Rfam assigns this 265-nucleotide sequence from Sporanaerobacter sp. PP17-6a to the family "Bacterial large signal recognition particle RNA".

RNA sequence: CCGUACUAGAUGGGAAAUUAGCGGUGUCCUGUACCUGCAAUCCGCUAUAGCAGGAUUGAAUUCCCGGCCUCGGCUUUUUUGCAGUAGGGUUCGCCUUAGAUAAGUGGCAAUGAUUAUUGGGCCCUGCGCAAUGAAAAUUUAUGAACCCCGUCAGGUCCGGAAGGAAGCAGCGGUAAAUAGACACUUUCAUGUGCCGUAGGAAAACCUAAUGUGAGUUAACUACCUAAGUAACACCUAAGGUAAUAAGUCAAAGCCGGGUGUACGG
Numbered sequence: 001c002c003g004u005a006c007u008a009g010a011u012g013g014g015a016a017a018u019u020a021g022c023g024g025u026g027u028c029c030u031g032u033a034c035c036u037g038c039a040a041u042c043c044g045c046u047a048u049a050g051c052a053g054g055a056u057u058g059a060a061u062u063c064c065c066g067g068c069c070u071c072g073g074c075u076u077u078u079u080u081g082c083a084g085u086a087g088g089g090u091u092c093g094c095c096u097u098a099g100a101u102a103a104g105u106g107g108c109a110a111u112g113a114u115u116a117u118u119g120g121g122c123c124c125u126g127c128g129c130a131a132u133g134a135a136a137a138u139u140u141a142u143g144a145a146c147c148c149c150g151u152c153a154g155g156u157c158c159g160g161a162a163g164g165a166a167g168c169a170g171c172g173g174u175a176a177a178u179a180g181a182c183a184c185u186u187u188c189a190u191g192u193g194c195c196g197u198a199g200g201a202a203a204a205c206c207u208a209a210u211g212u213g214a215g216u217u218a219a220c221u222a223c224c225u226a227a228g229u230a231a232c233a234c235c236u237a238a239g240g241u242a243a244u245a246a247g248u249c250a251a252a253g254c255c256g257g258g259u260g261u262a263c264g265g
Base pairs, nucleotide, nucleotide: 001265002264003263004262005261006260009057010056011055012030013029014028015027017025018024019023034054035053036052037051038050063258064257065256066255067254068253072249073248074247075246076245079243080242081241082240085237086236087235088234093229096227097226098225099224101222104220105219106217107216108215115211116210117209118208119207120206121205123200124199125198126197127196128195129191130190132189133188134187135186136185138181139180140179141178142177148173149172150171151170156165157164158163
The base pairs follow the family's consensus structure, which is taken from published work. From the family's description: The signal recognition particle (SRP) is a universally conserved ribonucleoprotein involved in the co-translational targeting of proteins to membranes. The family is grouped with related families in Rfam's "SRP clan". Taxonomically the source falls in Sporanaerobacter (Bacteria, Bacillota, Tissierellia, Sporanaerobacteraceae).